RNA: freshwater-2 RNA
RNA sequence: GCCAACAAGUUUACAGUUGGACUUAUGCGGAUAAAAACCGCGUAGUGAGUAGAACUCACAUUUGGCUCCAUAUAAGGAGAAACAAAAUG
Numbered sequence: 001g002c003c004a005a006c007a008a009g010u011u012u013a014c015a016g017u018u019g020g021a022c023u024u025a026u027g028c029g030g031a032u033a034a035a036a037a038c039c040g041c042g043u044a045g046u047g048a049g050u051a052g053a054a055c056u057c058a059c060a061u062u063u064g065g066c067u068c069c070a071u072a073u074a075a076g077g078a079g080a081a082a083c084a085a086a087a088u089g
Stems, first nucleotide, its partner, number of pairs: 002020005024044007045059004